[Rfam]
RNA sequence: UCGCGUUCGCGUCACUGGCGCCGCGAGAGGGAGCACCCUCGGGGAGCGCGGACACCAUACCGUAGCCGCGCGCCUGGGCACUCCUC
Numbered sequence: 001u002c003g004c005g006u007u008c009g010c011g012u013c014a015c016u017g018g019c020g021c022c023g024c025g026a027g028a029g030g031g032a033g034c035a036c037c038c039u040c041g042g043g044g045a046g047c048g049c050g051g052a053c054a055c056c057a058u059a060c061c062g063u064a065g066c067c068g069c070g071c072g073c074c075u076g077g078g079c080a081c082u083c084c085u086c
Stems, first nucleotide, its partner, number of pairs: 003055001005053008015043002017074005028039004065079003
RNA: ZMP/ZTP riboswitch aptamer (pfl RNA motif)